[Rfam]
RNA sequence: GGGGGCUGGGGCCCUCGGGUAUUUGACCCGAGGAAGUUCCGCCCACCGCACCGGGGCCGCGGUGCCGCAAGGCACCUCCCGGAAGGGAGGGCAACGGCGCAGAAACGACACGUCCCUCGGGAAAUGUGGAUGAAAGCGGUGAAGGCUCCCGGCGACGGGAGCUGAGUUAACCCGCAGACAAUCCCGAGGGGAGCGGUGAAACGGCCGUCCCGCGGGGUGCAAGGCCGAGAUAGGGGCUAUGAGUUCCCGGUGUGAGCCCCGUGGUAGGCCGCUCAGUCGAAUGCCCCAUUAAUACAGAAGGCGGGCUAUAGCCCCCU
Numbered sequence: 001g002g003g004g005g006c007u008g009g010g011g012c013c014c015u016c017g018g019g020u021a022u023u024u025g026a027c028c029c030g031a032g033g034a035a036g037u038u039c040c041g042c043c044c045a046c047c048g049c050a051c052c053g054g055g056g057c058c059g060c061g062g063u064g065c066c067g068c069a070a071g072g073c074a075c076c077u078c079c080c081g082g083a084a085g086g087g088a089g090g091g092c093a094a095c096g097g098c099g100c101a102g103a104a105a106c107g108a109c110a111c112g113u114c115c116c117u118c119g120g121g122a123a124a125u126g127u128g129g130a131u132g133a134a135a136g137c138g139g140u141g142a143a144g145g146c147u148c149c150c151g152g153c154g155a156c157g158g159g160a161g162c163u164g165a166g167u168u169a170a171c172c173c174g175c176a177g178a179c180a181a182u183c184c185c186g187a188g189g190g191g192a193g194c195g196g197u198g199a200a201a202c203g204g205c206c207g208u209c210c211c212g213c214g215g216g217g218u219g220c221a222a223g224g225c226c227g228a229g230a231u232a233g234g235g236g237c238u239a240u241g242a243g244u245u246c247c248c249g250g251u252g253u254g255a256g257c258c259c260c261g262u263g264g265u266a267g268g269c270c271g272c273u274c275a276g277u278c279g280a281a282u283g284c285c286c287c288a289u290u291a292a293u294a295c296a297g298a299a300g301g302c303g304g305g306c307u308a309u310a311g312c313c314c315c316c317u
Stems, first nucleotide, its partner, number of pairs: 001316007008287005016030005035307003039304005044219004049252006057215005062075005076089005090210002095207004111195003114190008139175002223270004233260005

Archaeal RNase P: a 317-nucleotide RNA sequence from Thermococcus litoralis.
Its Rfam clan is "RNaseP clan".
A reference for the family is Frank and Pace (1998), "Ribonuclease P: unity and diversity in a tRNA processing ribozyme", Annu Rev Biochem.
Pairs were carried over by alignment from the consensus structure, which is taken from published work.
Rfam describes the family as follows. Ribonuclease P (RNase P) is a ubiquitous endoribonuclease, found in archaea, bacteria and eukarya as well as chloroplasts and mitochondria. Its best characterised activity is the generation of mature 5'-ends of tRNAs by cleaving the 5'-leader elements of precursor-tRNAs. Cellular RNase Ps are ribonucleoproteins.
NCBI's taxonomy places the organism under Archaea, Methanobacteriati, Thermococci, Thermococcaceae, Thermococcus.
It is annotated as a ribozyme.